[Rfam]
RNA sequence: UUGAUAGCCGGAAAUUUACUGUUGCAAUUGCCGGAGUCAAAAGUCAGUUA
Numbered sequence: 001u002u003g004a005u006a007g008c009c010g011g012a013a014a015u016u017u018a019c020u021g022u023u024g025c026a027a028u029u030g031c032c033g034g035a036g037u038c039a040a041a042a043g044u045c046a047g048u049u050a
Base pairs, nucleotide, nucleotide: 001039003037008034009033011032012029013028018048019047020046021045
RNA: Exoribonuclease-resistant RNA (xrRNA) plant-infecting virus (class 3)
Organism: Polerovirus PTPV